Shown here is a 128-nucleotide RNA sequence from Xylanimonas protaetiae, a member of the family "SAM (S-adenosyl methionine) riboswitch aptamer".

RNA sequence: GGUCACGAGACCCAGCGACAAGCCCCGGCUUGCUGGGCAGCAACCCCACGACACGGCGGGGUGCUCCGGGAGAUGACCCGGCCGCCGGCCGCCCUCCGGGGCGAGUCGCCGCGCGGCAAGCGUGAUCG
Numbered sequence: 001g002g003u004c005a006c007g008a009g010a011c012c013c014a015g016c017g018a019c020a021a022g023c024c025c026c027g028g029c030u031u032g033c034u035g036g037g038c039a040g041c042a043a044c045c046c047c048a049c050g051a052c053a054c055g056g057c058g059g060g061g062u063g064c065u066c067c068g069g070g071a072g073a074u075g076a077c078c079c080g081g082c083c084g085c086c087g088g089c090c091g092c093c094c095u096c097c098g099g100g101g102c103g104a105g106u107c108g109c110c111g112c113g114c115g116g117c118a119a120g121c122g123u124g125a126u127c128g
Base pairs, nucleotide, nucleotide: 001078002077003076004075009038011037012036013035014034015033016032021030022029039065040064041063044061045060046059049055081117082116083115084114085113
A search with the family's covariance model found it, with a score of 76 bits. Rfam's curators write: SAM-IV is a mRNA element that regulates gene expression via direct sensing of S-adenosylmethionine (SAM or AdoMet). SAM-IV riboswitches share conserved nucleotide positions with the previously described SAM-I riboswitches sequence analysis and molecular recognition experiments suggest that SAM-I and SAM-IV riboswitches share similar ligand binding sites, but have different scaffolds.